The family of this 210-nucleotide RNA from Meloidogyne incognita is "Small nucleolar RNA U3". The source organism's lineage runs through Eukaryota, Eumetazoa, Chromadorea, Rhabditida and Meloidogyne.

Nucleotides: 210
Stems, first nucleotide, its partner, number of pairs: 001041004006035006015028005043056005073210003077206001092198011106162003116151003120147003129140003166183007
Number, partner (000 for none) and nucleotide at each position: 001041g002040g003039g004038a005000c006035u007034g008033u009032a010031c011030u012000u013000c014000u015028c016027a017026g018025g019024a020000u021000c022000a023000u024019u025018u026017c027016u028015g029000u030011a031010g032009u033008a034007c035006g036000u037000a038004u039003u040002c041001c042000u043056u044055u045054g046053c047052g048000g049000a050000g051000a052047c053046g054045c055044a056043a057000a058000c059000u060000g061000c062000u063000u064000c065000a066000c067000a068000a069000a070000g071000c072000a073210c074209c075208c076000u077206c078000g079000a080000u081000g082000a083000c084000g085000a086000g087000u088000u089000u090000a091000g092198g093197c094196g095195u096194u097193g098192u099191c100190c101189c102188c103000u104000g105000a106162g107161c108160g109000u110000g111000a112000a113000g114000c115000u116151u117150g118149u119000u120147g121146g122145g123000a124000c125000g126000u127000u128000g129140c130139c131138a132000a133000a134000u135000u136000u137000u138131u139130g140129g141000a142000u143000g144000c145122c146121c147120u148000g149118a150117c151116g152000u153000u154000g155000a156000a157000g158000a159000c160108c161107g162106u163000c164000a165000g166183c167182u168181g169180g170179c171178c172177c173000u174000u175000u176000u177172g178171g179170g180169u181168c182167g183166g184000c185000u186000a187000u188102g189101g190100g191099g192098g193097c194096a195095a196094c197093g198092c199000u200000c201000u202000c203000u204000g205000a206077g207000c208075g209074g210073g
The base pairs follow the family's consensus structure, which is taken from published work. Rfam's curators write: Small nucleolar RNAs (snoRNAs) are involved in the processing and modification of rRNA in the nucleolus. There are two main classes of snoRNAs: the box C/D class, and the box H/ACA class. U3 snoRNA is a member of the box C/D class. Indeed, the box C/D element is a subset of the six short sequence elements found in all U3 snoRNAs, namely boxes A, A', B, C, C', and D. The U3 snoRNA secondary structure is characterised by a small 5' domain (with boxes A and A'), and a larger 3' domain (with boxes B, C, C', and D), the two domains being linked by a single-stranded hinge.